[Rfam]
RNA sequence: ACGUCGCCCAGGCGGCGUCCGCGGUCCCUGACCGGGGCCGAAGCAGCGGGGGUGGUGCCGUGUCGGCGCAGCACCACCCCCGCGAC
Number, nucleotide and partner (000 for none) at each position: 001a018002c017003g016004u015005c014006g013007c012008c000009c000010a000011g000012g007013c006014g005015g004016c003017g002018u001019c043020c000021g000022c040023g039024g038025u000026c036027c035028c034029u000030g000031a000032c000033c000034g028035g027036g026037g000038c024039c023040g022041a000042a000043g019044c000045a000046g083047c082048g081049g080050g079051g078052g077053u076054g075055g074056u073057g072058c071059c000060g069061u068062g067063u000064c000065g000066g000067c062068g061069c060070a000071g058072c057073a056074c055075c054076a053077c052078c051079c050080c049081c048082g047083c046084g000085a000086c000

Rfam assigns this 86-nucleotide RNA from Streptomyces avermitilis to the family "Streptomyces RNA 6106". A search with the family's covariance model found it, with a score of 65 bits. On this family, see Vockenhuber et al., RNA Biol 2011: "Deep sequencing-based identification of small non-coding RNAs in Streptomyces coelicolor". The organism belongs to Streptomyces avermitilis, within Bacteria. Rfam's curators write: Identified by deep sequencing of transcriptome at the end of exponential growth phase. Appears smaller on northern blot than sequencing transcript. This indicates processing step. Streptomyces specific.